Rfam assigns this 123-nucleotide RNA sequence from Thalassotalea sp. LPB0316 to the family "Ribosomal S15 leader". Rfam classes the family as a cis-regulatory leader. A reference for the family is Benard et al. (1996), "Pseudoknot and translational control in the expression of the S15 ribosomal protein", Biochimie. Gene Ontology term of the family: regulation of translation, ncRNA-mediated. Rfam describes the family as follows. The E. coli Ribosomal S15 gene 5' UTR can form two alternative structures. One that is a series of three hairpins, The other includes a pseudoknot.

RNA sequence: CAUCUAUGCUGAAUUAGUGAUCGGCUAGAUGUGUUUUUAAAAUUCUAACUUUUUAUAGGAAUUAUUAUGUCGCUAAAUGCAGAGCAAAAAGCAGCUAUCGUUGCAGAAUACGCAGUUAAAGAA
Numbered sequence: 001c002a003u004c005u006a007u008g009c010u011g012a013a014u015u016a017g018u019g020a021u022c023g024g025c026u027a028g029a030u031g032u033g034u035u036u037u038u039a040a041a042a043u044u045c046u047a048a049c050u051u052u053u054u055a056u057a058g059g060a061a062u063u064a065u066u067a068u069g070u071c072g073c074u075a076a077a078u079g080c081a082g083a084g085c086a087a088a089a090a091g092c093a094g095c096u097a098u099c100g101u102u103g104c105a106g107a108a109u110a111c112g113c114a115g116u117u118a119a120a121g122a123a
Base pairs, nucleotide, nucleotide: 008025009024010023011022012021052077053076054075058074059071